[Rfam]
RNA sequence: AGAGCCGGCCAGACAGUCGCUGUGUCCGUUGAGGGCAUGGAGGAAAGUCCGGGCUUCACAGGGCAGGGUGCCAGGUAACGCCUGGGGGGUCUUCACCGAUCCACGGAAAGUGCCGCAGAAAACAUACCGCCGAUGGCCUUUUUCAAGGCACAGGCAAGGGUGAAAUGGUGCGGUAAGAGCGCACCGCGUGACUGGUAACAGUCAUGGCAGGGCAAACCCCACUCGAAGCAAGGCCAAAUAGGGAUGCCACGGCGUGGCCCGCGCUGCAUCCGGGUAGGCUGCUGGAGGCGGUUGGCGACAACCGUCCAAGAUGAAUGACUGUCCACGACAGAACCCGGCUUAUCGGCCGGCUCUCGCU
Numbered sequence: 001a002g003a004g005c006c007g008g009c010c011a012g013a014c015a016g017u018c019g020c021u022g023u024g025u026c027c028g029u030u031g032a033g034g035g036c037a038u039g040g041a042g043g044a045a046a047g048u049c050c051g052g053g054c055u056u057c058a059c060a061g062g063g064c065a066g067g068g069u070g071c072c073a074g075g076u077a078a079c080g081c082c083u084g085g086g087g088g089g090u091c092u093u094c095a096c097c098g099a100u101c102c103a104c105g106g107a108a109a110g111u112g113c114c115g116c117a118g119a120a121a122a123c124a125u126a127c128c129g130c131c132g133a134u135g136g137c138c139u140u141u142u143u144c145a146a147g148g149c150a151c152a153g154g155c156a157a158g159g160g161u162g163a164a165a166u167g168g169u170g171c172g173g174u175a176a177g178a179g180c181g182c183a184c185c186g187c188g189u190g191a192c193u194g195g196u197a198a199c200a201g202u203c204a205u206g207g208c209a210g211g212g213c214a215a216a217c218c219c220c221a222c223u224c225g226a227a228g229c230a231a232g233g234c235c236a237a238a239u240a241g242g243g244a245u246g247c248c249a250c251g252g253c254g255u256g257g258c259c260c261g262c263g264c265u266g267c268a269u270c271c272g273g274g275u276a277g278g279c280u281g282c283u284g285g286a287g288g289c290g291g292u293u294g295g296c297g298a299c300a301a302c303c304g305u306c307c308a309a310g311a312u313g314a315a316u317g318a319c320u321g322u323c324c325a326c327g328a329c330a331g332a333a334c335c336c337g338g339c340u341u342a343u344c345g346g347c348c349g350g351c352u353c354u355c356g357c358u
Stems, first nucleotide, its partner, number of pairs: 001354010011343001012323007020040008045341003049338005054228004061260004066224005071085005086104001087102004105219002110217002112213003127159002129155003134150002137147001167185006186208001187206008232280004242271006251265005287306008
Dot-bracket structure: ((((((((((((((((((.((((((((.....))))))))....[[[.[[[[[((((...[[[[.((((((((((.....)))))(((((........)))).)((...(((((............(((((..((.(.........).))..)))..)).......((((((.......))))))(((((((((....)))))))).)..)))..)))))))))))))...((((......((((((...(((((.]]]]))))))))))).....))))......((((((((....))))))))..........)))))))..........]]]]]]]].).))))))))))....

Annotation: Shown here is a 358-nucleotide RNA sequence from Wenzhouxiangella sp. AB-CW3, a member of the family "Bacterial RNase P class A". Rfam classes the family as a ribozyme. Pairs were carried over by alignment from the consensus structure, which is taken from published work. Taxonomically the source falls in Wenzhouxiangella (Bacteria, Pseudomonadota, Chromatiales, Wenzhouxiangellaceae). The match comes from Rfam's covariance-model search (332 bits).